[Rfam]
RNA sequence: AGUGGAGGACUAAUCGGACCGAGUCUGAAGAGUGAGACUUGGAUGACAGUAACCUCCUAAAAGAAAAAGGGAUGGGGAGAGCUGUCCUCCUUAGAGAAAAAGGGAAGGGCUGACUGUGCCAUCCCACACGG
Numbered sequence: 001a002g003u004g005g006a007g008g009a010c011u012a013a014u015c016g017g018a019c020c021g022a023g024u025c026u027g028a029a030g031a032g033u034g035a036g037a038c039u040u041g042g043a044u045g046a047c048a049g050u051a052a053c054c055u056c057c058u059a060a061a062a063g064a065a066a067a068a069g070g071g072a073u074g075g076g077g078a079g080a081g082c083u084g085u086c087c088u089c090c091u092u093a094g095a096g097a098a099a100a101a102g103g104g105a106a107g108g109g110c111u112g113a114c115u116g117u118g119c120c121a122u123c124c125c126a127c128a129c130g131g
Stems, first nucleotide, its partner, number of pairs: 003059001004057005017044001019042001021040006069124003080115002082112001084110005092104001